The family of this 50-nucleotide sequence from Aquabacter sp. L1I39 is "Guanidine-II riboswitch aptamer (mini-ykkC)". Taxonomically the source falls in Aquabacter (Bacteria, Alphaproteobacteria, Hyphomicrobiales, Xanthobacteraceae). About the family: Simpler in structure and has fewer highly conserved nucleotide positions than the ykkC-yxkD leader. Pairs were carried over by alignment from the consensus structure, which is taken from published work. It scores 39 bits against the family's covariance model.
[Rfam]
RNA sequence: GCACCGGGACGACCCGGCCGCCCUUCUCACCCCCGGCCGGGACGACCCGG
Numbered sequence: 001g002c003a004c005c006g007g008g009a010c011g012a013c014c015c016g017g018c019c020g021c022c023c024u025u026c027u028c029a030c031c032c033c034c035g036g037c038c039g040g041g042a043c044g045a046c047c048c049g050g
Base pairs, nucleotide, nucleotide: 004017005016006015007014008013037050038049039048040047041046